[Rfam]
RNA: SAM riboswitch aptamer (S box leader)
Organism: Hymenobacter oligotrophus
RNA sequence: UUUUUAUACAGAGGCGUGGAGAGACAGGCUCCCUGAAGCGCCGGCAACCCUCCGGAUCAUCCGGAACGGUGCCAAUUCCUGACCAUAUAAAAA
Numbered sequence: 001u002u003u004u005u006a007u008a009c010a011g012a013g014g015c016g017u018g019g020a021g022a023g024a025c026a027g028g029c030u031c032c033c034u035g036a037a038g039c040g041c042c043g044g045c046a047a048c049c050c051u052c053c054g055g056a057u058c059a060u061c062c063g064g065a066a067c068g069g070u071g072c073c074a075a076u077u078c079c080u081g082a083c084c085a086u087a088u089a090a091a092a093a
Base pairs, nucleotide, nucleotide: 001093002092003091004090005089006088007087008086013042014041015040016039017038021031022030023029025081026080027079028078043073044072045071046070048069049068051065052064053063054062077085